[Rfam]
RNA sequence: GGAGCAGCUUCUGGAGAGUCCGCUUUUCCGCGGCGCCGAAGGAUUCACAAUCUCAGGCAAAAGGACAGGAGAGUAUAC
Numbered sequence: 001g002g003a004g005c006a007g008c009u010u011c012u013g014g015a016g017a018g019u020c021c022g023c024u025u026u027u028c029c030g031c032g033g034c035g036c037c038g039a040a041g042g043a044u045u046c047a048c049a050a051u052c053u054c055a056g057g058c059a060a061a062a063g064g065a066c067a068g069g070a071g072a073g074u075a076u077a078c
Base pairs, nucleotide, nucleotide: 008071009070010069011068012067013066020033021032022031023030035058036057037056038054039053042052043051044050